[Rfam]
This 46-nucleotide sequence from Lacipirellula parvula belongs to the Rfam family "Acido-Lenti-1 RNA".
Pairs were carried over by alignment from the consensus structure, which is taken from published work.
RNA sequence: CCGGGGGCUUACGCCCCCGGCUACAUCAUGUCGCCCCUUAGGGGCU
Numbered sequence: 001c002c003g004g005g006g007g008c009u010u011a012c013g014c015c016c017c018c019g020g021c022u023a024c025a026u027c028a029u030g031u032c033g034c035c036c037c038u039u040a041g042g043g044g045c046u
Stems, first nucleotide, its partner, number of pairs: 001020008033045005
Dot-bracket structure: ((((((((....))))))))............(((((...))))).
The family's RNA type in Rfam is small RNA.